[Rfam]
RNA sequence: AAGGCAGGGAUUGUGUGUAUCGGCAUGGUGCAGCAAUCAAUGCGCCAAUUUCCGAAAGAGUUCCCUGCCAUAUUAAUCAUAAGGGAAGAUGGGCAGUUGUUUUUCAUCUUUUUCAUUGAUUUUCUCAACAAUCAUCUUCUCUACAUCC
Numbered sequence: 001a002a003g004g005c006a007g008g009g010a011u012u013g014u015g016u017g018u019a020u021c022g023g024c025a026u027g028g029u030g031c032a033g034c035a036a037u038c039a040a041u042g043c044g045c046c047a048a049u050u051u052c053c054g055a056a057a058g059a060g061u062u063c064c065c066u067g068c069c070a071u072a073u074u075a076a077u078c079a080u081a082a083g084g085g086a087a088g089a090u091g092g093g094c095a096g097u098u099g100u101u102u103u104u105c106a107u108c109u110u111u112u113u114c115a116u117u118g119a120u121u122u123u124c125u126c127a128a129c130a131a132u133c134a135u136c137u138u139c140u141c142u143a144c145a146u147c148c
Base pairs, nucleotide, nucleotide: 004068005067006066007065008064009063010062015045016044017043018042019041020040082142083141084140085139086138087137088136089135090134091133092132096129097128098127099126
Shown here is a 148-nucleotide RNA sequence from Carnegiea gigantea, a member of the family "small nucleolar RNA snoR135". For this family Rfam cites "Mining small RNA sequencing data: a new approach to identify small nucleolar RNAs in Arabidopsis" (Chen and Wu, Nucleic Acids Res, 2009). Its family is annotated with RNA processing and nucleolus in the Gene Ontology. The base pairs follow the family's consensus structure, which was predicted with RNAalifold. It is annotated as an H/ACA-box small nucleolar RNA. NCBI's taxonomy places the organism under Eukaryota, Streptophyta, Spermatophyta, Echinocereeae, Carnegiea.